[Rfam]
Nucleotides: 176
Base pairs, nucleotide, nucleotide: 006171007170008169009168010167011166017080018079019078020077022075023074024073025072033065034064035063036062037061038060039059040058084110085109086108087107088106089105090104091103092102093101094100095099111137112136115133116132117131118130119129120128121127139161140160141159142158143157144156145155
Number, partner (000 for none) and nucleotide at each position: 001000a002000a003000u004000a005000a006171a007170a008169a009168u010167a011166g012000a013000g014000g015000u016000u017080g018079c019078g020077a021000g022075u023074a024073c025072a026000a027000a028000u029000a030000g031000u032000a033065a034064a035063a036062a037061c038060a039059g040058g041000g042000a043000g044000a045000a046000g047000g048000c049000a050000u051000u052000u053000u054000a055000g056000g057000a058040u059039c060038u061037g062036u063035u064034u065033u066000g067000a068000a069000a070000g071000g072025u073024g074023u075022a076000a077020u078019u079018g080017c081000c082000g083000a084110a085109g086108u087107g088106u089105g090104g091103a092102u093101u094100u095099u096000g097000c098000a099095a100094g101093a102092a103091u104090u105089u106088a107087u108086g109085c110084u111137g112136g113000g114000g115133a116132u117131a118130u119129g120128g121127a122000u123000a124000a125000g126000a127121u128120c129119c130118a131117u132116a133115u134000a135000a136112c137111u138000g139161u140160c141159a142158u143157u144156a145155u146000c147000a148000u149000a150000a151000u152000c153000a154000g155145g156144u157143a158142a159141u160140g161139g162000g163000g164000u165000g166011c167010u168009a169008u170007u171006u172000g173000a174000a175000g176000u